Small nucleolar RNA Z161/Z228: a 99-nucleotide RNA sequence from Carya illinoinensis. The family has 11 seed sequences and 630 matches in Rfam 15.1. The family's RNA type in Rfam is C/D-box small nucleolar RNA. Clan: SNORD35 clan. Lineage of the source: Eukaryota > Streptophytina > Embryophyta > Tracheophyta > Carya.
[Rfam]
RNA sequence: AAAUCAGAUGAUGAAUUAGGAUUAAAAAUUCUCACGACGGUCGUCUGAGACGCGAUAAGUGUCGUAUCUGAUGGAAAUGAUCCAUUGCUUCUGAUGGUU
Numbered sequence: 001a002a003a004u005c006a007g008a009u010g011a012u013g014a015a016u017u018a019g020g021a022u023u024a025a026a027a028a029u030u031c032u033c034a035c036g037a038c039g040g041u042c043g044u045c046u047g048a049g050a051c052g053c054g055a056u057a058a059g060u061g062u063c064g065u066a067u068c069u070g071a072u073g074g075a076a077a078u079g080a081u082c083c084a085u086u087g088c089u090u091c092u093g094a095u096g097g098u099u
Base pairs, nucleotide, nucleotide: 001099002098004096051061052060053059